A member of the RNA family "RtT RNA" from Prodigiosinella confusarubida, 127 nucleotides long. For this family Rfam cites "A novel RNA product of the tyrT operon of Escherichia coli" (Bosl and Kersten, Nucleic Acids Res, 1991). By type it is a cis-regulatory element. Lineage of the source: Bacteria > Pseudomonadati > Gammaproteobacteria > Pectobacteriaceae > Prodigiosinella. A search with the family's covariance model found it, with a score of 99 bits. Rfam describes the family as follows. This family represents a bacterial cis-regulatory element known as RtT RNA. The exact function of RtT is unknown although it is thought that it may be involved in changing the cellular response in relation to amino acid starvation.
[Rfam]
RNA sequence: AUAGUGCACGUGUCGUGCGGGUGAGAAGCUGCGCUCAGGUUCGAGCCGAGCGGAUGCGAGACAACAACGCGCUAGCGUUGGCCCGUAGGGUGAGGCCAGAGGCCGAAUUAUCCUGCACGACCCACCA
Numbered sequence: 001a002u003a004g005u006g007c008a009c010g011u012g013u014c015g016u017g018c019g020g021g022u023g024a025g026a027a028g029c030u031g032c033g034c035u036c037a038g039g040u041u042c043g044a045g046c047c048g049a050g051c052g053g054a055u056g057c058g059a060g061a062c063a064a065c066a067a068c069g070c071g072c073u074a075g076c077g078u079u080g081g082c083c084c085g086u087a088g089g090g091u092g093a094g095g096c097c098a099g100a101g102g103c104c105g106a107a108u109u110a111u112c113c114u115g116c117a118c119g120a121c122c123c124a125c126c127a
Base pairs, nucleotide, nucleotide: 015118016117017116018115019114020113021112022110032092033091035090036089040087042085043084047058048057065080066079067078068077069076070075